[Rfam]
RNA: mir-30 microRNA precursor family
RNA sequence: GGAGGGGCUGUAAACAUCCUUGACUGGAAGCUGAUGUUUGGACUGGGAGGGCUUUCAGUCGGAUGUUUGCAGCAUCUUA
Number, nucleotide and partner (000 for none) at each position: 001g000002g078003a077004g076005g075006g000007g000008c072009u071010g070011u069012a068013a067014a066015c065016a064017u063018c062019c061020u000021u000022g000023a059024c058025u057026g056027g055028a054029a053030g052031c051032u050033g000034a000035u000036g000037u000038u000039u000040g000041g000042a000043c000044u000045g000046g000047g000048a000049g000050g032051g031052c030053u029054u028055u027056c026057a025058g024059u023060c000061g019062g018063a017064u016065g015066u014067u013068u012069g011070c010071a009072g008073c000074a000075u005076c004077u003078u002079a000